[Rfam]
RNA sequence: UUUCACAGUCGCGACUGGCGCUGAGAUGGGUUUCCAUCGGGAAACGACACCGACACGGUUAGUGGCCGUCCGCCUGGGCCACGACG
Numbered sequence: 001u002u003u004c005a006c007a008g009u010c011g012c013g014a015c016u017g018g019c020g021c022u023g024a025g026a027u028g029g030g031u032u033u034c035c036a037u038c039g040g041g042a043a044a045c046g047a048c049a050c051c052g053a054c055a056c057g058g059u060u061a062g063u064g065g066c067c068g069u070c071c072g073c074c075u076g077g078g079c080c081a082c083g084a085c086g
Stems, first nucleotide, its partner, number of pairs: 003053002008048004015041002017074004026037004063081005

ZMP/ZTP riboswitch aptamer (pfl RNA motif): an 86-nucleotide sequence from a Microbacteriaceae bacterium. It scores 52 bits against the family's covariance model. The organism belongs to Microbacteriaceae, within Bacteria.